[Rfam]
Nucleotides: 114
Base pairs, nucleotide, nucleotide: 007108008107011104012103013102014101017098018097019096023092024091025090026089027088028087029086030085031084032083
Number, partner (000 for none) and nucleotide at each position: 001000a002000a003000a004000u005000g006000u007108u008107c009000a010000a011104u012103a013102g014101g015000g016000u017098c018097g019096g020000c021000a022000u023092g024091a025090g026089a027088a028087u029086a030085c031084a032083u033000g034000g035000g036000u037000g038000u039000g040000c041000u042000g043000c044000u045000u046000g047000u048000g049000g050000c051000c052000u053000u054000u055000a056000a057000g058000u059000u060000a061000a062000a063000a064000c065000u066000a067000a068000u069000g070000c071000a072000u073000c074000a075000u076000a077000a078000u079000g080000u081000a082000u083032a084031u085030g086029u087028g088027u089026u090025c091024u092023c093000a094000g095000g096019u097018c098017g099000c100000c101014c102013c103012u104011g105000u106000u107008g108007a109000a110000u111000u112000a113000u114000c